[Rfam]
RNA sequence: CUGCAAAGCAUUGUACCCAGAGUCUGUUCCGCAGACAUUGCACCUGGAGCUUUCUGUUCUGGAAUAAAACCCUUG
Numbered sequence: 001c002u003g004c005a006a007a008g009c010a011u012u013g014u015a016c017c018c019a020g021a022g023u024c025u026g027u028u029c030c031g032c033a034g035a036c037a038u039u040g041c042a043c044c045u046g047g048a049g050c051u052u053u054c055u056g057u058u059c060u061g062g063a064a065u066a067a068a069a070c071c072c073u074u075g
Base pairs, nucleotide, nucleotide: 005053006052007051008050009049017047018046019045020044022036023035024034025033026032
Record summary
Shown here is a 75-nucleotide RNA from Apteryx owenii, a member of the family "U1A polyadenylation inhibition element (PIE)". By type it is a cis-regulatory element. Its family is annotated with regulation of mRNA polyadenylation in the Gene Ontology. The family has 39 seed sequences and 510 matches in Rfam 15.1. For this family Rfam cites "The NMR structure of the 38 kDa U1A protein - PIE RNA complex reveals the basis of cooperativity in regulation of polyadenylation by human U1A protein" (Varani et al., Nat Struct Biol, 2000). Taxonomically the source falls in Apteryx (Eukaryota, Deuterostomia, Sauropsida, Apterygiformes).